[Rfam]
RNA sequence: UAAUAUCUUCAGGGCAGGGUGAAAUUCCCUACCGGCGGUUAUAGCCCGCGAGCCGAAAGGCAUGAUCUAGUGAAAUUCUAGAGCCGACAGUAAAGUCUGGAUGGAAGAAGAGAUGC
Dot-bracket structure: ..((.(((((......(((.......))).[[((((((.....[[))))....(.....).....(((((.......)))))]])).(((....]]))).......))))).))..
The family of this 116-nucleotide RNA from Clostridium niameyense is "FMN riboswitch aptamer (RFN element)". The source organism's lineage runs through Bacteria, Bacillati, Bacillota, Eubacteriales and Clostridium. From the family's description: The RFN element is a highly conserved domain that is found frequently in the 5'-untranslated regions of prokaryotic mRNAs that encode for flavin mononucleotide (FMN) biosynthesis and transport proteins.